[Rfam]
RNA: Streptomyces RNA 3920
Organism: Streptomyces caatingaensis
RNA sequence: GAUAGGGCUGUGUCGCCAGGGUGAUUGGACACUGACGCAGAGUCAACUAGCCUUGUGCGCACGGCCCUUCCUUCGCGCGGGACCGCGGCGGCUCAAGUCAUGAGGGGGGAGACUUGAGCCGUCCUCG
Numbered sequence: 001g002a003u004a005g006g007g008c009u010g011u012g013u014c015g016c017c018a019g020g021g022u023g024a025u026u027g028g029a030c031a032c033u034g035a036c037g038c039a040g041a042g043u044c045a046a047c048u049a050g051c052c053u054u055g056u057g058c059g060c061a062c063g064g065c066c067c068u069u070c071c072u073u074c075g076c077g078c079g080g081g082a083c084c085g086c087g088g089c090g091g092c093u094c095a096a097g098u099c100a101u102g103a104g105g106g107g108g109g110a111g112a113c114u115u116g117a118g119c120c121g122u123c124c125u126c127g
Stems, first nucleotide, its partner, number of pairs: 001014004015051002018048001021032003033045004058077003061072001063070002078085002087123013101108001